Annotation
Shown here is a 77-nucleotide sequence from Legionella tucsonensis, a member of the family "RAGATH-32 RNA". By type it is a cis-regulatory element. Taxonomically the source falls in Legionella (Bacteria, Pseudomonadati, Gammaproteobacteria, Legionellales). The family's consensus secondary structure is taken from published work. The family has 19 seed sequences and 38 matches in Rfam 15.1.
RNA sequence: GUGGCUGGACGAUCAGUCGGGAAACCAUCUAGGAAUCUUUGUCAUCCACAUGGCAAUUUCCUCGGGAGUUUAAGCCA
Numbered sequence: 001g002u003g004g005c006u007g008g009a010c011g012a013u014c015a016g017u018c019g020g021g022a023a024a025c026c027a028u029c030u031a032g033g034a035a036u037c038u039u040u041g042u043c044a045u046c047c048a049c050a051u052g053g054c055a056a057u058u059u060c061c062u063c064g065g066g067a068g069u070u071u072a073a074g075c076c077a
Base pairs, nucleotide, nucleotide: 037053038052040050041049042048055070056069057068058067059066060065
Dot-bracket structure: ....................................((.(((.....))).)).((((((....)))))).......